The record is a 77-nucleotide RNA sequence from Caenorhabditis japonica, which matches "mir-235 microRNA precursor family" in Rfam. Taxonomically the source falls in Caenorhabditis (Eukaryota, Nematoda, Chromadorea, Rhabditomorpha). The match comes from Rfam's covariance-model search (77 bits).

[Rfam]
RNA sequence: AAGGAUCAGGUCUUGGCCGGUUGCAUAUAUUGCGUCGACAGAAAUGCUAAUAUUGCACUCGCCCCGGCCUGAUCUGG
Numbered sequence: 001a002a003g004g005a006u007c008a009g010g011u012c013u014u015g016g017c018c019g020g021u022u023g024c025a026u027a028u029a030u031u032g033c034g035u036c037g038a039c040a041g042a043a044a045u046g047c048u049a050a051u052a053u054u055g056c057a058c059u060c061g062c063c064c065c066g067g068c069c070u071g072a073u074c075u076g077g
Stems, first nucleotide, its partner, number of pairs: 003075010015064002019060002022057004027053005032047002